[Rfam]
RNA: Small nucleolar RNA SNORD67
Organism: Nothobranchius furzeri
RNA sequence: UGUGAGAGUGAUGAGUUGCACGCAUCUGCUGGGGUCUGCUGCAGUGGCAUCAGCACUCCAGGCUGAAGUAAUCUGAAGAGAUAAACGUUGCACAGGGGCCAUCUGACUCAAA
Number, nucleotide and partner (000 for none) at each position: 001u000002g000003u000004g000005a000006g109007a108008g107009u000010g000011a000012u000013g000014a000015g000016u000017u000018g000019c000020a000021c000022g000023c000024a000025u066026c065027u000028g063029c061030u060031g059032g058033g000034g056035u055036c000037u000038g051039c000040u049041g048042c047043a000044g000045u000046g000047g042048c041049a040050u000051c038052a000053g000054c000055a035056c034057u000058c032059c031060a030061g029062g000063c028064u000065g026066a025067a000068g000069u000070a000071a000072u000073c000074u000075g000076a000077a000078g000079a000080g000081a000082u000083a000084a000085a000086c000087g000088u000089u000090g000091c000092a000093c000094a000095g000096g000097g000098g000099c000100c000101a000102u000103c000104u000105g000106a000107c008108u007109c006110a000111a000112a000